The family of this 116-nucleotide sequence from Alca torda is "U5 spliceosomal RNA".
[Rfam]
Nucleotides: 116
Base pairs, nucleotide, nucleotide: 003079004078006076009068010067011066012065013064014063015062016061017060018059019058028054029053030052031051033049034048035047096116098115100113101112103110
Number, partner (000 for none) and nucleotide at each position: 001000a002000u003079a004078g005000u006076c007000u008000g009068g010067u011066u012065u013064c014063u015062c016061u017060u018059c019058a020000g021000a022000u023000c024000g025000u026000a027000u028054a029053a030052a031051u032000c033049u034048u035047u036000c037000a038000c039000c040000u041000u042000c043000u044000a045000c046000u047035a048034a049033a050000u051031a052030u053029u054028u055000c056000c057000a058019u059018g060017g061016a062015g063014a064013g065012g066011a067010a068009c069000a070000c071000u072000g073000a074000a075000u076006g077000u078004u079003u080000u081000a082000g083000g084000c085000c086000a087000g088000g089000c090000u091000u092000g093000a094000u095000g096116a097000g098115g099000c100113u101112c102000u103110g104000a105000g106000c107000a108000a109000c110103c111000u112101g113100a114000u115098c116096u
Overview
Rfam 15.1 lists 28,527 matches to the family in 2,489 species. It is annotated as a spliceosomal small nuclear RNA. Pairs were carried over by alignment from the consensus structure, which is taken from published work. NCBI's taxonomy places the organism under Eukaryota, Dinosauria, Coelurosauria, Alcidae, Alca. For this family Rfam cites "The uRNA database" (Zwieb, Nucleic Acids Res, 1997). U5 RNA is a component of both types of known spliceosome. The precise function of this molecule is unknown, though it is known that the 5' loop is required for splice site selection and p220 binding, and that both the 3' stem-loop and the Sm site are important for Sm protein binding and cap methylation. Gene Ontology terms of the family: U5 snRNP and spliceosomal tri-snRNP complex assembly.